Small nucleolar RNA snR80: a 175-nucleotide RNA sequence from Penicillium concentricum. The family's RNA type in Rfam is H/ACA-box small nucleolar RNA. The organism belongs to Penicillium, within Eukaryota. Its Rfam clan is "SNORA28 clan". A reference for the family is Schattner et al. (2004), "Genome-wide searching for pseudouridylation guide snoRNAs: analysis of the Saccharomyces cerevisiae genome", Nucleic Acids Res. Rfam 15.1 lists 447 matches to the family in 358 species.

RNA sequence: GGAACCCCCACAACACUCUGGCCCUUACUGUUCUUUCCCUACGGGGAUUGAUCAUAUCAAAAACGUGGUAUAGGCUUAUUUUAAGUGGGGAAGAAGAAACCAGUCCCAUUACUCAUCGCGGUAUCCUUGGAGACUUGUCUCCGUGGGUACAGUGAUCCAUAUUUCGGGUCUACAU
Numbered sequence: 001g002g003a004a005c006c007c008c009c010a011c012a013a014c015a016c017u018c019u020g021g022c023c024c025u026u027a028c029u030g031u032u033c034u035u036u037c038c039c040u041a042c043g044g045g046g047a048u049u050g051a052u053c054a055u056a057u058c059a060a061a062a063a064c065g066u067g068g069u070a071u072a073g074g075c076u077u078a079u080u081u082u083a084a085g086u087g088g089g090g091a092a093g094a095a096g097a098a099a100c101c102a103g104u105c106c107c108a109u110u111a112c113u114c115a116u117c118g119c120g121g122u123a124u125c126c127u128u129g130g131a132g133a134c135u136u137g138u139c140u141c142c143g144u145g146g147g148u149a150c151a152g153u154g155a156u157c158c159a160u161a162u163u164u165c166g167g168g169u170c171u172a173c174a175u
Stems, first nucleotide, its partner, number of pairs: 007090003020076004026070006103170001105168002116155004121150003125147003